The family of this 405-nucleotide RNA from Limnobacter sp. MED105 is "Bacterial RNase P class A".

[Rfam]
RNA sequence: AAAGUGCGUCGGACAGUCGCUGCCUGAAUUUCAGGGAGAGGAAAGUCCGGACUCCAGUGAGCACGGUGCUGGUUAACGACCAGGCGCUAUAAGGUUUUGGUGACAAAACUGAAAGCGACGGAAAGUGCAACAGAAAACACACCGCCGAUGGAAAGGCAACUUUCACAGGCAAGGGCGAACCGGAGGUGUAAGAGACCCCCGCAGACUUGGUAACAAGGCUGGCUAGGUAAACCCCACUUGGAGCAACACCAAAUAGGCGCGCAGGCGCUUUCGGGCGUCAACGGCGCUCCCCGUGCGCGCGGGUAGGUGGCUUGAGCUGAAGAGUAAUUUUCAGCCUAGAGGAAUGAUUGUCACUUUGGCUGCAAGGCCAUUGAACAGAAUCCGGCUUACAGGCGCGCUUUCUAC
Numbered sequence: 001a002a003a004g005u006g007c008g009u010c011g012g013a014c015a016g017u018c019g020c021u022g023c024c025u026g027a028a029u030u031u032c033a034g035g036g037a038g039a040g041g042a043a044a045g046u047c048c049g050g051a052c053u054c055c056a057g058u059g060a061g062c063a064c065g066g067u068g069c070u071g072g073u074u075a076a077c078g079a080c081c082a083g084g085c086g087c088u089a090u091a092a093g094g095u096u097u098u099g100g101u102g103a104c105a106a107a108a109c110u111g112a113a114a115g116c117g118a119c120g121g122a123a124a125g126u127g128c129a130a131c132a133g134a135a136a137a138c139a140c141a142c143c144g145c146c147g148a149u150g151g152a153a154a155g156g157c158a159a160c161u162u163u164c165a166c167a168g169g170c171a172a173g174g175g176c177g178a179a180c181c182g183g184a185g186g187u188g189u190a191a192g193a194g195a196c197c198c199c200c201g202c203a204g205a206c207u208u209g210g211u212a213a214c215a216a217g218g219c220u221g222g223c224u225a226g227g228u229a230a231a232c233c234c235c236a237c238u239u240g241g242a243g244c245a246a247c248a249c250c251a252a253a254u255a256g257g258c259g260c261g262c263a264g265g266c267g268c269u270u271u272c273g274g275g276c277g278u279c280a281a282c283g284g285c286g287c288u289c290c291c292c293g294u295g296c297g298c299g300c301g302g303g304u305a306g307g308u309g310g311c312u313u314g315a316g317c318u319g320a321a322g323a324g325u326a327a328u329u330u331u332c333a334g335c336c337u338a339g340a341g342g343a344a345u346g347a348u349u350g351u352c353a354c355u356u357u358g359g360c361u362g363c364a365a366g367g368c369c370a371u372u373g374a375a376c377a378g379a380a381u382c383c384g385g386c387u388u389a390c391a392g393g394c395g396c397g398c399u400u401u402c403u404a405c
Base pairs, nucleotide, nucleotide: 001401002400003399004398005397006396007395008394009393010392011390012352013351014350015349016348017347018346020038021037023035024034025033026032027031043388044387045386047385048384049383050382051381052243053242054241055240059289060288061287062286065238066237067236068235069083070082071081072080073079084119085117086116087115088114120234121233125232126231127228128227142174143173144170145169146168149165150164151163152162182200183199185197186196187195201223202221203220204219206217207216208215209214247309248308249307250306257300258299259298260297261296262295283291284290316335317334318333319332320331321330322329323328